[Rfam]
RNA: RAGATH-7-assoc RNA
RNA sequence: ACUUUAGCAUUCUAACUAUUAUAUCAACACAAUGAUAUAUGAAAACUCGUGUAUGAUGUAUAUCUCCCUAAUUGGGGCGUUACGACGUUCCAGAAACGUAGUAUGAAGGCGCAGAGGCGUUAGAACUAAAGU
Numbered sequence: 001a002c003u004u005u006a007g008c009a010u011u012c013u014a015a016c017u018a019u020u021a022u023a024u025c026a027a028c029a030c031a032a033u034g035a036u037a038u039a040u041g042a043a044a045a046c047u048c049g050u051g052u053a054u055g056a057u058g059u060a061u062a063u064c065u066c067c068c069u070a071a072u073u074g075g076g077g078c079g080u081u082a083c084g085a086c087g088u089u090c091c092a093g094a095a096a097c098g099u100a101g102u103a104u105g106a107a108g109g110c111g112c113a114g115a116g117g118c119g120u121u122a123g124a125a126c127u128a129a130a131g132u
Base pairs, nucleotide, nucleotide: 001132002131003130004129005128006127007126011124012123013122014121015120016119023036024035025034026033037052038051039050040049041048042047066076067075068074081103082102083101085099086098087097088096089095
Dot-bracket structure: (((((((...((((((......((((......))))((((((....)))))).............(((.....)))....(((.(((((.....))))).)))...............)))))).)))))))